[Rfam]
RNA: Selenocysteine insertion sequence 1
Organism: Xenopus tropicalis
RNA sequence: CUUGCGUUAAUGAUGGCAGAAGCAUAAACUACAAAAUAGGGGCUUCUGUCUGAGUCUGGCAAA
Numbered sequence: 001c002u003u004g005c006g007u008u009a010a011u012g013a014u015g016g017c018a019g020a021a022g023c024a025u026a027a028a029c030u031a032c033a034a035a036a037u038a039g040g041g042g043c044u045u046c047u048g049u050c051u052g053a054g055u056c057u058g059g060c061a062a063a
Stems, first nucleotide, its partner, number of pairs: 002062004015050009029039003